[Rfam]
The record is a 57-nucleotide RNA sequence from Acyrthosiphon pisum, which matches "mir-3015 microRNA precursor family" in Rfam. Gene Ontology terms of the family: miRNA-mediated post-transcriptional gene silencing and RISC complex. A search with the family's covariance model found it, with a score of 67 bits. Pairs were carried over by alignment from the consensus structure, which was predicted with RNAalifold.
RNA sequence: GUUCUUACAAUAUCUGGUUAAGUGUGGGUUAACUUUAACCGGAUAUUGUAAGAAUGG
Numbered sequence: 001g002u003u004c005u006u007a008c009a010a011u012a013u014c015u016g017g018u019u020a021a022g023u024g025u026g027g028g029u030u031a032a033c034u035u036u037a038a039c040c041g042g043a044u045a046u047u048g049u050a051a052g053a054a055u056g057g
Stems, first nucleotide, its partner, number of pairs: 001055011013043010024033002